Description: A member of the RNA family "mir-133 microRNA precursor family" from Neogale vison, 71 nucleotides long. Lineage of the source: Eukaryota > Eumetazoa > Gnathostomata > Eutheria > Neogale. Rfam describes the family as follows. mir-133 was first experimentally characterised in mouse and homologues have since been discovered in several other species. The mature sequence is excised from the 3' arm of the hairpin. The match comes from Rfam's covariance-model search (57 bits). The literature on the family includes a 2002 paper in Curr Biol by Lagos-Quintana et al., "Identification of tissue-specific microRNAs from mouse".
RNA sequence: CAGCUGCAGCUGGUUGAAGGGGACCAAAUCGUCGAGCAGCUGAUUUGGUUCCAUUUUACCAGCUCUAGCAA
Numbered sequence: 001c002a003g004c005u006g007c008a009g010c011u012g013g014u015u016g017a018a019g020g021g022g023a024c025c026a027a028a029u030c031g032u033c034g035a036g037c038a039g040c041u042g043a044u045u046u047g048g049u050u051c052c053a054u055u056u057u058a059c060c061a062g063c064u065c066u067a068g069c070a071a
Stems, first nucleotide, its partner, number of pairs: 003069004008064007016056003020051003024048007